[Rfam]
RNA sequence: GUCUGAGGCUGGGUCUUUGUGGGCAAGGUGAGUUCCUCCCUGCCUUCAACUGGCCUACAAAGUCCCAGUUUUAGGC
Dot-bracket structure: ..((((((.((((.(((((.((((.((.((................)).)).)))).))))).)))).))))))..
Notes
This 76-nucleotide RNA sequence from Astyanax mexicanus belongs to the Rfam family "mir-193 microRNA precursor family". The organism belongs to Astyanax, within Eukaryota. Its family is annotated with miRNA-mediated post-transcriptional gene silencing and RISC complex in the Gene Ontology.